[Rfam]
RNA sequence: GGCGAAAUGCCUUAAAAACACACAUGCACCGACACAUGGUCCCGGGUGCCGUGGGUUGUCGCCCGCGGUCGGAUCCAUGGGGUGUAUGGAGGCCUAAC
Numbered sequence: 001g002g003c004g005a006a007a008u009g010c011c012u013u014a015a016a017a018a019c020a021c022a023c024a025u026g027c028a029c030c031g032a033c034a035c036a037u038g039g040u041c042c043c044g045g046g047u048g049c050c051g052u053g054g055g056u057u058g059u060c061g062c063c064c065g066c067g068g069u070c071g072g073a074u075c076c077a078u079g080g081g082g083u084g085u086a087u088g089g090a091g092g093c094c095u096a097a098c
Base pairs, nucleotide, nucleotide: 023088024087025086026085027084028083029082030081035079036078037077038076039075040073041072042071048069049068050067051066052065
t44 RNA: a 98-nucleotide RNA from Pistricoccus aurantiacus. The organism belongs to Pistricoccus, within Bacteria. A search with the family's covariance model found it, with a score of 74 bits.